The family of this 62-nucleotide sequence is "S15-Halobacteria ribosomal protein leader".
The family's RNA type in Rfam is cis-regulatory leader.
It is one of the family's seed sequences.
RNA sequence: AUGGGAACAGCACGGCCGCAAGUCCGACUCGCCGCCCGUGCGGCUUGGGAUUGCGGAAGUGC
Numbered sequence: 001a002u003g004g005g006a007a008c009a010g011c012a013c014g015g016c017c018g019c020a021a022g023u024c025c026g027a028c029u030c031g032c033c034g035c036c037c038g039u040g041c042g043g044c045u046u047g048g049g050a051u052u053g054c055g056g057a058a059g060u061g062c
Base pairs, nucleotide, nucleotide: 010062011061012060013059016056017055018054019053020052021051024049025048031044032043033042034041035040
Its Rfam clan is "Ribosomal Protein S15 Leader clan". Pairs were carried over by alignment from the consensus structure, which is taken from published work.